RNA sequence: AAUCUAUCUACGGAUAGUGCGUACUCUCUCUAGACCUUGCGUCUACUCAACUCAACUAAACGAAAUUUUUGUCUUUUGUCAUUUGGGGUAACCUAAAUGAUAAAGGGCACUUGCCAAUAUUUCGGUUAGACUGCCCCUAUUUGCUUCAAAGUAGUGUGCCUGGUGCACUCCCUGCCGUGGUGUUCCGUCACCAUAGAGCAUAGUGUACUAGGACCCUCCGCUGUUCCGUCAGCAGAGGUGUGUGAAUACGGUGUUCCGUCACUGUUGAAACCACUAACAGAAGCAAUGGCUUGCAGUCAGUACACACUUGCUA
Numbered sequence: 001a002a003u004c005u006a007u008c009u010a011c012g013g014a015u016a017g018u019g020c021g022u023a024c025u026c027u028c029u030c031u032a033g034a035c036c037u038u039g040c041g042u043c044u045a046c047u048c049a050a051c052u053c054a055a056c057u058a059a060a061c062g063a064a065a066u067u068u069u070u071g072u073c074u075u076u077u078g079u080c081a082u083u084u085g086g087g088g089u090a091a092c093c094u095a096a097a098u099g100a101u102a103a104a105g106g107g108c109a110c111u112u113g114c115c116a117a118u119a120u121u122u123c124g125g126u127u128a129g130a131c132u133g134c135c136c137c138u139a140u141u142u143g144c145u146u147c148a149a150a151g152u153a154g155u156g157u158g159c160c161u162g163g164u165g166c167a168c169u170c171c172c173u174g175c176c177g178u179g180g181u182g183u184u185c186c187g188u189c190a191c192c193a194u195a196g197a198g199c200a201u202a203g204u205g206u207a208c209u210a211g212g213a214c215c216c217u218c219c220g221c222u223g224u225u226c227c228g229u230c231a232g233c234a235g236a237g238g239u240g241u242g243u244g245a246a247u248a249c250g251g252u253g254u255u256c257c258g259u260c261a262c263u264g265u266u267g268a269a270a271c272c273a274c275u276a277a278c279a280g281a282a283g284c285a286a287u288g289g290c291u292u293g294c295a296g297u298c299a300g301u302a303c304a305c306a307c308u309u310g311c312u313a
Base pairs, nucleotide, nucleotide: 004017005016006015007014008013031045032044033043034042035041062123063122064121065120066119068117072107073106074105075104076103077102079100080099081098082097083096084095085094086093131296132295133294141286142285143284144283145282146281151278152276153275154274155273156272165206166205167204168203175196177194178193179192180191181190182189215238216237217236218235220233221232222231223230242271243270248265249264250263251262252261253260
Shown here is a 313-nucleotide RNA from Jingmen Miniopterus schreibersii alphacoronavirus 1, a member of the family "Alphacoronavirus 5'UTR". Clan: Coronavirus 5' UTR. It is annotated as a cis-regulatory element. A search with the family's covariance model found it, with a score of 189 bits. The pairing is the family consensus, mapped onto this sequence. Rfam describes the family as follows. The first 150 to 200 nucleotides within the 5' UTR of alphacoronaviruses are highly structured and shown to be conserved on the structural level among alphacoronaviruses. The 5' UTR has been predicted to contain 3 conserved stem-loops: SL1, SL2 and SL4. SL1 is important for viral replication, most likely playing a role in the template-switch of viral subgenomic RNA transcription. Mutations of the upper part of SL1 seems to have an higher impact of viral replication level. SL2 is crucial for viral viability, nucleotides are interchangeable as long as the structure remains stable. Disrupting any G-C pairing causes major defects in viral replication. SL4 is hypothesised to play a role in directing subgenomic RNA synthesis during viral replication. Downstream of SL4 lies SL5, which overlaps with the first ORF of the viral genome.